[Rfam]
RNA sequence: GAAAAACCGUUGAGAAAGAGUAGUAAGCGAUUUUUGAUAUCACAGAGAGCUGCAGGCGGUGGGAUUGCAGUAUGGAUGGAUUUGCUGAAUGGACUUUUGAGGGCGGCCUGAACAGAUACAGUAGGCGUCGCCGGGAACCGGACCCGUUACCCAUCCGGCAUGUAUGGUUGUACAUGAAGCGAGUGGACUUUUCAGUCAAUAUGAGUGGUACCGCGAUAAUAGAUACUAUUACCGUCUCAGGC
Number, nucleotide and partner (000 for none) at each position: 001g000002a000003a000004a000005a000006a000007c102008c101009g000010u000011u000012g000013a000014g000015a097016a096017a095018g094019a000020g000021u000022a000023g000024u000025a000026a086027g085028c084029g083030a082031u000032u000033u000034u000035u000036g000037a000038u074039a073040u072041c000042a000043c000044a000045g000046a000047g000048a000049g071050c070051u069052g068053c067054a066055g000056g000057c000058g000059g000060u000061g000062g000063g000064a000065u000066u054067g053068c052069a051070g050071u049072a040073u039074g038075g000076a000077u000078g000079g000080a000081u000082u030083u029084g028085c027086u026087g000088a000089a000090u000091g000092g000093a000094c018095u017096u016097u015098u000099g000100a000101g008102g007103g000104c130105g129106g128107c127108c125109u124110g000111a000112a000113c000114a000115g000116a000117u000118a000119c000120a000121g000122u000123a000124g109125g108126c000127g107128u106129c105130g104131c000132c146133g145134g144135g000136a000137a000138c000139c000140g000141g000142a000143c000144c134145c133146g132147u000148u000149a000150c000151c000152c000153a000154u000155c000156c000157g000158g000159c000160a000161u000162g000163u000164a000165u000166g000167g000168u000169u000170g000171u000172a000173c000174a000175u000176g000177a000178a000179g000180c000181g000182a000183g000184u000185g000186g197187a196188c195189u194190u000191u000192u000193c000194a189195g188196u187197c186198a000199a000200u000201a000202u239203g238204a237205g236206u000207g000208g000209u000210a000211c000212c000213g235214c234215g233216a000217u231218a230219a229220u228221a227222g000223a000224u000225a000226c000227u221228a220229u219230u218231a217232c000233c215234g214235u213236c205237u204238c203239a202240g000241g000242c000
This 242-nucleotide sequence from Roseburia sp. OF03-24 belongs to the Rfam family "T-box leader". Taxonomically the source falls in Roseburia (Bacteria, Bacillota, Clostridia, Lachnospirales). It is annotated as a cis-regulatory leader. The match comes from Rfam's covariance-model search (103 bits).